[Rfam]
Description
Shown here is a 36-nucleotide sequence from Kordia algicida, a member of the family "DUF805b RNA".
RNA sequence: CAGGCGUAAUUCUGAAAAGCCUCAAUAGAGUAGGAG
Number, nucleotide and partner (000 for none) at each position: 001c000002a022003g021004g020005c019006g000007u000008a000009a000010u000011u035012c034013u033014g000015a000016a000017a000018a000019g005020c004021c003022u002023c000024a000025a000026u000027a000028g000029a000030g000031u000032a000033g013034g012035a011036g000
The sequence is in the family's curated seed alignment.